[Rfam]
RNA sequence: AAAGCGUGCCUUUCAGGCAUCCUCUCCUAAAACUUUCCAGGGCCGGUCCGAAAGGAUCGGCCUUUUUUCUUGCCGUUC
Numbered sequence: 001a002a003a004g005c006g007u008g009c010c011u012u013u014c015a016g017g018c019a020u021c022c023u024c025u026c027c028u029a030a031a032a033c034u035u036u037c038c039a040g041g042g043c044c045g046g047u048c049c050g051a052a053a054g055g056a057u058c059g060g061c062c063u064u065u066u067u068u069c070u071u072g073c074c075g076u077u078c
Stems, first nucleotide, its partner, number of pairs: 008018004040063009